[Rfam]
RNA sequence: GAAUGAUGAAUGUUGAACUUUAUUGUUCCCUAUUGGUUUGAUCGCCGGAAUGAUGGCAUCUUACGUAUUAGCUCUAUCUGAUCCCAUUC
Numbered sequence: 001g002a003a004u005g006a007u008g009a010a011u012g013u014u015g016a017a018c019u020u021u022a023u024u025g026u027u028c029c030c031u032a033u034u035g036g037u038u039u040g041a042u043c044g045c046c047g048g049a050a051u052g053a054u055g056g057c058a059u060c061u062u063a064c065g066u067a068u069u070a071g072c073u074c075u076a077u078c079u080g081a082u083c084c085c086a087u088u089c
Stems, first nucleotide, its partner, number of pairs: 002088004040060001044057003
Shown here is an 89-nucleotide RNA sequence from Brassica rapa, a member of the family "Small nucleolar RNA Z102/R77". Rfam 15.1 lists 1,346 matches to the family in 224 species. The family is grouped with related families in Rfam's "SNORD44 clan". Its family is annotated with RNA processing and nucleolus in the Gene Ontology. The family's RNA type in Rfam is C/D-box small nucleolar RNA. On this family, see Chen et al., Nucleic Acids Res 2003: "The high diversity of snoRNAs in plants: identification and comparative study of 120 snoRNA genes from Oryza sativa".